Description:
A member of the RNA family "Fluoride riboswitch aptamer (crcB RNA motif)" from Williamsia sterculiae, 80 nucleotides long. Lineage of the source: Bacteria > Bacillati > Actinomycetota > Nocardiaceae > Williamsia.
[Rfam]
RNA sequence: AGCAGGUGCGGCGAUGGAUCUCGCCGGAUUUCCUGUUCGGGAAAUCGAACCGCCUCUCGGCUGAUAGUUCCUGCUGAUGA
Numbered sequence: 001a002g003c004a005g006g007u008g009c010g011g012c013g014a015u016g017g018a019u020c021u022c023g024c025c026g027g028a029u030u031u032c033c034u035g036u037u038c039g040g041g042a043a044a045u046c047g048a049a050c051c052g053c054c055u056c057u058c059g060g061c062u063g064a065u066a067g068u069u070c071c072u073g074c075u076g077a078u079g080a
Stems, first nucleotide, its partner, number of pairs: 010025004016071003020067002052061003